[Rfam]
This 97-nucleotide RNA from Alkalibacterium sp. AK22 belongs to the Rfam family "THF (Tetrahydrofolate) riboswitch aptamer". Pairs were carried over by alignment from the consensus structure, which is taken from published work. Gene Ontology term of the family: tetrahydrofolate metabolic process. The source organism's lineage runs through Bacteria, Bacillati, Bacillota, Bacilli and Alkalibacterium.

RNA sequence: AAAAGAGUAAGGAAAGAACGUUAAGUGCUAGAAGGAUGGGAUGUUGCCUCUAGACGAAAAAACGGUAGUUUUGCGAUUCUUUCCUGCAUCCGCUUUA
Numbered sequence: 001a002a003a004a005g006a007g008u009a010a011g012g013a014a015a016g017a018a019c020g021u022u023a024a025g026u027g028c029u030a031g032a033a034g035g036a037u038g039g040g041a042u043g044u045u046g047c048c049u050c051u052a053g054a055c056g057a058a059a060a061a062a063c064g065g066u067a068g069u070u071u072u073g074c075g076a077u078u079c080u081u082u083c084c085u086g087c088a089u090c091c092g093c094u095u096u097a
Base pairs, nucleotide, nucleotide: 002096003095004094005093010085011084012083013082014081015080016079017078018077019075020074021073025055026054028053029052030051031050032049034048035047039091040090041089042088043087059072060071061070062069